[Rfam]
RNA sequence: UACUGUUAAUGAUGAUUUUGUUGUAAGCAAUGGGAAUCUCUCUGAAAGAGAAUGAGGAAGACUCUUAUGCUGAAACAGUA
Numbered sequence: 001u002a003c004u005g006u007u008a009a010u011g012a013u014g015a016u017u018u019u020g021u022u023g024u025a026a027g028c029a030a031u032g033g034g035a036a037u038c039u040c041u042c043u044g045a046a047a048g049a050g051a052a053u054g055a056g057g058a059a060g061a062c063u064c065u066u067a068u069g070c071u072g073a074a075a076c077a078g079u080a
Base pairs, nucleotide, nucleotide: 001080002079003078004077005076006075007074
Dot-bracket structure: (((((((..................................................................)))))))
The record is an 80-nucleotide RNA sequence from Gopherus agassizii, which matches "Small nucleolar RNA SNORD79" in Rfam.
The source organism's lineage runs through Eukaryota, Dipnotetrapodomorpha, Tetrapoda, Amniota and Gopherus.
Rfam links the family to the GO terms RNA processing and nucleolus.
Its Rfam clan is "SNORD74 clan".
A search with the family's covariance model found it, with a score of 81 bits.
Rfam describes the family as follows. snoRNA U79 or Z22 is found in intron 7 of the gas5 gene in humans and is also present in mice.
Rfam classes the family as a C/D-box small nucleolar RNA.
A reference for the family is Galardi et al. (2002), "Purified box C/D snoRNPs are able to reproduce site-specific 2'-O-methylation of target RNA in vitro", Mol Cell Biol.